[Rfam]
Shown here is a 64-nucleotide RNA sequence, a member of the family "DUF2815 RNA". Pairs were carried over by alignment from the consensus structure, which is taken from published work. By type it is a small RNA. Rfam's curators put it in the seed alignment.

RNA sequence: UGGGUAGACAGACUGGCCCCAAAUGAAGUCCAGUCUUUAUGUUAAAAAGGUAAUAAUCAUCAUG
Numbered sequence: 001u002g003g004g005u006a007g008a009c010a011g012a013c014u015g016g017c018c019c020c021a022a023a024u025g026a027a028g029u030c031c032a033g034u035c036u037u038u039a040u041g042u043u044a045a046a047a048a049g050g051u052a053a054u055a056a057u058c059a060u061c062a063u064g
Stems, first nucleotide, its partner, number of pairs: 001021004010036007